[Rfam]
A member of the RNA family "Guanidine-II riboswitch aptamer (mini-ykkC)" from Paramagnetospirillum magneticum, 48 nucleotides long.
RNA sequence: GGGCCGGGACGACCCGCCCCUUUUCCCCUCACCUCCGGGACGGCCCGG
Numbered sequence: 001g002g003g004c005c006g007g008g009a010c011g012a013c014c015c016g017c018c019c020c021u022u023u024u025c026c027c028c029u030c031a032c033c034u035c036c037g038g039g040a041c042g043g044c045c046c047g048g
Stems, first nucleotide, its partner, number of pairs: 001020003005016004035048005
Dot-bracket structure: (((.((((....)))).)))..............(((((....)))))
Its family is annotated with regulation of gene expression in the Gene Ontology.